RNA sequence: UGAGCAGUACUAAAGUGCUUAUAGUGCAGGUAGUGUUGUUCUUCUCAUCUACUGCAAUGUGAGCACUUGAAGUAUUCCUGA
Numbered sequence: 001u002g003a004g005c006a007g008u009a010c011u012a013a014a015g016u017g018c019u020u021a022u023a024g025u026g027c028a029g030g031u032a033g034u035g036u037u038g039u040u041c042u043u044c045u046c047a048u049c050u051a052c053u054g055c056a057a058u059g060u061g062a063g064c065a066c067u068u069g070a071a072g073u074a075u076u077c078c079u080g081a
Stems, first nucleotide, its partner, number of pairs: 004078001006076002009073003013068011025056003029053005
RNA: mir-17 microRNA precursor family